[Rfam]
RNA sequence: AAUCAAGAGAUCCGGUGGCAAGCCCUGGCUGGCCGGACGGCAACCCUCCUGCUGUAGCGGGGUGCUCCAGGUGAGGAUUCGACGGCGCCGGCAGACCGGCGUCGUAAGUAUGGCGC
Numbered sequence: 001a002a003u004c005a006a007g008a009g010a011u012c013c014g015g016u017g018g019c020a021a022g023c024c025c026u027g028g029c030u031g032g033c034c035g036g037a038c039g040g041c042a043a044c045c046c047u048c049c050u051g052c053u054g055u056a057g058c059g060g061g062g063u064g065c066u067c068c069a070g071g072u073g074a075g076g077a078u079u080c081g082a083c084g085g086c087g088c089c090g091g092c093a094g095a096c097c098g099g100c101g102u103c104g105u106a107a108g109u110a111u112g113g114c115g116c
Base pairs, nucleotide, nucleotide: 001079002078003077004076009038011037012036013035014034015033016032021030022029039066040065041064044062045061046060048057082105083104084103085102086101087100088099089098090097091096

A member of the RNA family "SAM (S-adenosyl methionine) riboswitch aptamer" from Sinomonas sp. R1AF57, 116 nucleotides long. Gene Ontology terms of the family: regulation of gene expression and S-adenosylmethionine metabolic process. Its Rfam clan is "SAM clan". SAM-IV is a mRNA element that regulates gene expression via direct sensing of S-adenosylmethionine (SAM or AdoMet). SAM-IV riboswitches share conserved nucleotide positions with the previously described SAM-I riboswitches sequence analysis and molecular recognition experiments suggest that SAM-I and SAM-IV riboswitches share similar ligand binding sites, but have different scaffolds.